RNA sequence: UGGUGCCCAACGUGUGGCUUGAGUACCAAGGCUACAGUGAAGAACACUGCAGUGUUUCUGUUCGGCCGAUUUUGUGUGGAAGAUGCCCUGCGUGGGAGCCUGCCGCCUCAACUAGAGAUCCUGGUGAGUCCUGGGUGGUCAUGACACCUAGUAACCUAGUAACCGUGAACAAGAGUGGAAGGUUUGAAAAAGACUUUAAAGGUACAAGGGAUAAAGGUUAAAAUGCACGACUUGCAUUUUUUGAUUUUGUAAAAGAGAUUUGUCCGU
Numbered sequence: 001u002g003g004u005g006c007c008c009a010a011c012g013u014g015u016g017g018c019u020u021g022a023g024u025a026c027c028a029a030g031g032c033u034a035c036a037g038u039g040a041a042g043a044a045c046a047c048u049g050c051a052g053u054g055u056u057u058c059u060g061u062u063c064g065g066c067c068g069a070u071u072u073u074g075u076g077u078g079g080a081a082g083a084u085g086c087c088c089u090g091c092g093u094g095g096g097a098g099c100c101u102g103c104c105g106c107c108u109c110a111a112c113u114a115g116a117g118a119u120c121c122u123g124g125u126g127a128g129u130c131c132u133g134g135g136u137g138g139u140c141a142u143g144a145c146a147c148c149u150a151g152u153a154a155c156c157u158a159g160u161a162a163c164c165g166u167g168a169a170c171a172a173g174a175g176u177g178g179a180a181g182g183u184u185u186g187a188a189a190a191a192g193a194c195u196u197u198a199a200a201g202g203u204a205c206a207a208g209g210g211a212u213a214a215a216g217g218u219u220a221a222a223a224u225g226c227a228c229g230a231c232u233u234g235c236a237u238u239u240u241u242u243g244a245u246u247u248u249g250u251a252a253a254a255g256a257g258a259u260u261u262g263u264c265c266g267u
Stems, first nucleotide, its partner, number of pairs: 006031002012026003035049004085125001087117001088115002092106004131151004138145002158196001159194002205243008215233005252267001255264002

The family of this 267-nucleotide RNA from Mus musculus is "Mason-Pfizer monkey virus packaging signal". It is annotated as a cis-regulatory element. The source organism's lineage runs through Eukaryota, Metazoa, Amniota, Eutheria and Mus. About the family: This family represents a group of sequences that are related to the Mason-Pfizer monkey virus (MPMV) packaging signal. The packaging signal is located in the 5' UTR and is required for specific RNA encapsidation. The base pairs follow the family's consensus structure, which was predicted with PFOLD. The match comes from Rfam's covariance-model search (76 bits).